[Rfam]
RNA sequence: GUGAUACUCAAAUGUGGGAGCACUCUUCUGGAAUCUAGGUGGAAAGUGCUUCAACAUUUGGGUGUCAU
Numbered sequence: 001g002u003g004a005u006a007c008u009c010a011a012a013u014g015u016g017g018g019a020g021c022a023c024u025c026u027u028c029u030g031g032a033a034u035c036u037a038g039g040u041g042g043a044a045a046g047u048g049c050u051u052c053a054a055c056a057u058u059u060g061g062g063u064g065u066c067a068u
Base pairs, nucleotide, nucleotide: 004065005064006063007062008061009060010059011058012057014055015054017052018051019050020049021048022047023046024045026044027043028042
Dot-bracket structure: ...(((((((((.((.((((((((.(((.............))))))))))).)).)))))))))...
A member of the RNA family "mir-290 microRNA precursor family" from Prolemur simus, 68 nucleotides long. A reference for the family is Suh et al. (2004), "Human embryonic stem cells express a unique set of microRNAs", Dev Biol. The family's consensus secondary structure was predicted with RNAalifold. The family has 31 seed sequences and 565 matches in Rfam 15.1.